[Rfam]
RNA: BsrF
RNA sequence: GCGAUGAGCUCAUUUGCAUAAGACGGACAGGCAUUCCUUUUUGGAGCACGUUGUGGAGCGUGGUCUGGACGCCGCAAAUUAUCGAUAAGCAUCCUGCUUUUGCAGGGUGC
Numbered sequence: 001g002c003g004a005u006g007a008g009c010u011c012a013u014u015u016g017c018a019u020a021a022g023a024c025g026g027a028c029a030g031g032c033a034u035u036c037c038u039u040u041u042u043g044g045a046g047c048a049c050g051u052u053g054u055g056g057a058g059c060g061u062g063g064u065c066u067g068g069a070c071g072c073c074g075c076a077a078a079u080u081a082u083c084g085a086u087a088a089g090c091a092u093c094c095u096g097c098u099u100u101u102g103c104a105g106g107g108u109g110c
Stems, first nucleotide, its partner, number of pairs: 014077004024071002028067005035044002047062002050059003089110009